[Rfam]
RNA sequence: CGGUGAUGUCUCCUUGCCGUUAUCAAUGGAGGUACUCGACCAUGCUGUGGGUUGGAAUAUACCUUAGACGCGAGUCGUCAAAGGUGUGGUGUGAGGUGGGGUUAGAUGCCCU
Number, nucleotide and partner (000 for none) at each position: 001c019002g018003g017004u016005g000006a000007u034008g033009u032010c031011u030012c029013c028014u000015u000016g004017c003018c002019g001020u000021u000022a000023u000024c000025a000026a000027u000028g013029g012030a011031g010032g009033u008034a007035c095036u094037c093038g092039a090040c089041c088042a087043u086044g085045c084046u083047g000048u000049g064050g063051g062052u061053u000054g000055g000056a000057a000058u000059a000060u000061a052062c051063c050064u049065u000066a000067g079068a078069c077070g076071c000072g000073a000074g000075u000076c070077g069078u068079c067080a000081a000082a000083g046084g045085u044086g043087u042088g041089g040090u039091g000092u038093g037094a036095g035096g000097u000098g112099g111100g110101g109102u108103u000104a000105g000106a000107u000108g102109c101110c100111c099112u098

The record is a 112-nucleotide RNA sequence from Paenibacillus foliorum, which matches "epsC RNA" in Rfam. The family's consensus secondary structure is taken from published work. The match comes from Rfam's covariance-model search (108 bits).